The record is a 182-nucleotide RNA from Propionigenium maris, which matches "Lysine riboswitch aptamer" in Rfam. Riboswitches are metabolite binding domains within certain messenger RNAs that serve as precision sensors for their corresponding targets. Allosteric rearrangement of mRNA structure is mediated by ligand binding, and this results in modulation of gene expression. This family includes riboswitches that sense lysine in a number of genes involved in lysine metabolism, including lysC. The organism belongs to Propionigenium maris, within Bacteria. The family's consensus secondary structure is taken from published work. The match comes from Rfam's covariance-model search (87 bits).

RNA sequence: UGAAAAAAUAGAGGUGCAUUUAUGGAGGUAAUCUGAGGAUGUCAAGGGAAGGGACUCCCAAUGACUCAGAUGAAAGACUUAACUGCCGAAAGGAGUGGCUCGGUCCAGAUGGGCGCUCCUUGGGGGUCACAGUAAAGCUGUGGCAACUGUCACGGGAUAUCCCGUGAAGAGCUAUUUUCCAC
Numbered sequence: 001u002g003a004a005a006a007a008a009u010a011g012a013g014g015u016g017c018a019u020u021u022a023u024g025g026a027g028g029u030a031a032u033c034u035g036a037g038g039a040u041g042u043c044a045a046g047g048g049a050a051g052g053g054a055c056u057c058c059c060a061a062u063g064a065c066u067c068a069g070a071u072g073a074a075a076g077a078c079u080u081a082a083c084u085g086c087c088g089a090a091a092g093g094a095g096u097g098g099c100u101c102g103g104u105c106c107a108g109a110u111g112g113g114c115g116c117u118c119c120u121u122g123g124g125g126g127u128c129a130c131a132g133u134a135a136a137g138c139u140g141u142g143g144c145a146a147c148u149g150u151c152a153c154g155g156g157a158u159a160u161c162c163c164g165u166g167a168a169g170a171g172c173u174a175u176u177u178u179c180c181a182c
Stems, first nucleotide, its partner, number of pairs: 006177006016086003020082003024078001031071007090121008099112002122148002126144007150167007